[Rfam]
RNA sequence: GGCUCAUUGGGGUUACUGGCUAACCUUCCCGACUGUCUCUCGGGAGAAACGGGUUCGACUCCCGUAUGAGCCG
Numbered sequence: 001g002g003c004u005c006a007u008u009g010g011g012g013u014u015a016c017u018g019g020c021u022a023a024c025c026u027u028c029c030c031g032a033c034u035g036u037c038u039c040u041c042g043g044g045a046g047a048a049a050c051g052g053g054u055u056c057g058a059c060u061c062c063c064g065u066a067u068g069a070g071c072c073g
Base pairs, nucleotide, nucleotide: 001072002071003070004069005068006067007066010026011025012024013023028044029043030042031041032040049065050064051063052062053061

Rfam assigns this 73-nucleotide RNA sequence from Flavobacterium bizetiae to the family "tRNA".
The family's consensus secondary structure is taken from published work.
The organism belongs to Flavobacterium, within Bacteria.
Rfam classes the family as a transfer RNA.